Nucleotides: 071
Stems, first nucleotide, its partner, number of pairs: 001071005007065001
Number, partner (000 for none) and nucleotide at each position: 001071c002070a003069g004068u005067g006000c007065a008000c009000a010000u011000g012000a013000u014000g015000a016000g017000u018000u019000u020000g021000u022000u023000a024000u025000c026000c027000c028000u029000g030000u031000c032000u033000g034000a035000a036000a037000a038000a039000a040000c041000a042000a043000u044000g045000u046000g047000g048000a049000a050000a051000c052000a053000a054000a055000u056000g057000g058000u059000a060000u061000c062000u063000g064000a065007u066000c067005u068004g069003c070002u071001g
Shown here is a 71-nucleotide RNA sequence from Mastacembelus armatus, a member of the family "Small nucleolar RNA R38". The family's RNA type in Rfam is C/D-box small nucleolar RNA. snoR38 is a C/D box small nucleolar RNA conserved across yeast, human, Arabidopsis and rice. It is encoded in the intron of elongation factor-1 gamma in both pombe and cerevisiae. snoR38 guides the methylation of 2'-O-ribose sites in 28S rRNA. The family's consensus secondary structure was predicted with PFOLD.